[Rfam]
RNA sequence: CUCGAUAAAGGCAAAACCGGCGAAAGCCGGUGACGCAAAGCUACAGGGGCUAAGCCGCACAUCGAGGCGGGACUUGCCAGCCAGCUGCCGAAA
Numbered sequence: 001c002u003c004g005a006u007a008a009a010g011g012c013a014a015a016a017c018c019g020g021c022g023a024a025a026g027c028c029g030g031u032g033a034c035g036c037a038a039a040g041c042u043a044c045a046g047g048g049g050c051u052a053a054g055c056c057g058c059a060c061a062u063c064g065a066g067g068c069g070g071g072a073c074u075u076g077c078c079a080g081c082c083a084g085c086u087g088c089c090g091a092a093a
Base pairs, nucleotide, nucleotide: 003090004089011036012035016031017030018029019028020027021026034080039086040085041084042083046082047081048078049077050076
Record summary
Shown here is a 93-nucleotide RNA from Paenibacillus phyllosphaerae, a member of the family "c-di-GMP-I-GGC riboswitch aptamer". The base pairs follow the family's consensus structure, which is taken from published work. Gene Ontology term of the family: cyclic-di-GMP binding. The source organism's lineage runs through Bacteria, Bacillati, Bacillota, Paenibacillaceae and Paenibacillus. The match comes from Rfam's covariance-model search (67 bits). A reference for the family is Smith et al. (2010), "Structural and biochemical determinants of ligand binding by the c-di-GMP riboswitch ", Biochemistry.